[Rfam]
Shown here is a 190-nucleotide RNA from Neobittarella massiliensis, a member of the family "glycine-GGAnGA riboswitch aptamer".
The organism belongs to Neobittarella (ex Bilen et al. 2018), within Bacteria.
Rfam links the family to the GO term glycine biosynthetic process.
glycine-GGAnGA riboswitch is a variant of glycine riboswitch that have in common a U69A change. This riboswitch is associate with genes that encode either saccharopine dehydrogenase or amino acid transporters and other genes with not predicted function.

RNA sequence: ACGGUGGAUGGCGACCCUAGACAUCGGCGCGAUGAGACGCCGGGGCCGAAGAAGCAAACCGCCCGGGGCGCACAUUUCCCCGGCGGCAGAAACUGACAGGCAAAAAGGAAGGUAGCCAGACGGACCUCUGAAGAGAGCGGCUGCGGCUGCCGCCUACGUGGCAAUAACCAACUGGCAAAAGGACAGAGAG
Numbered sequence: 001a002c003g004g005u006g007g008a009u010g011g012c013g014a015c016c017c018u019a020g021a022c023a024u025c026g027g028c029g030c031g032a033u034g035a036g037a038c039g040c041c042g043g044g045g046c047c048g049a050a051g052a053a054g055c056a057a058a059c060c061g062c063c064c065g066g067g068g069c070g071c072a073c074a075u076u077u078c079c080c081c082g083g084c085g086g087c088a089g090a091a092a093c094u095g096a097c098a099g100g101c102a103a104a105a106a107g108g109a110a111g112g113u114a115g116c117c118a119g120a121c122g123g124a125c126c127u128c129u130g131a132a133g134a135g136a137g138c139g140g141c142u143g144c145g146g147c148u149g150c151c152g153c154c155u156a157c158g159u160g161g162c163a164a165u166a167a168c169c170a171a172c173u174g175g176c177a178a179a180a181g182g183a184c185a186g187a188g189a190g
Stems, first nucleotide, its partner, number of pairs: 002122002010117003014113003022044001024043006045101003051097001053094002059086005065080004126188005135151001137150004152176003158172001160169002

For this family Rfam cites "Bioinformatic analysis of riboswitch structures uncovers variant classes with altered ligand specificity" (Weinberg et al., Proc Natl Acad Sci U S A, 2017).